[Rfam]
RNA sequence: GAAAAUUAGCUAUUUUAGUAUUUGUCCAGUAGGUUUUCUCCUGCAGAAAGCCCCC
Dot-bracket structure: ...............................((((((((.....))))))))...
Numbered sequence: 001g002a003a004a005a006u007u008a009g010c011u012a013u014u015u016u017a018g019u020a021u022u023u024g025u026c027c028a029g030u031a032g033g034u035u036u037u038c039u040c041c042u043g044c045a046g047a048a049a050g051c052c053c054c055c
Stems, first nucleotide, its partner, number of pairs: 032052008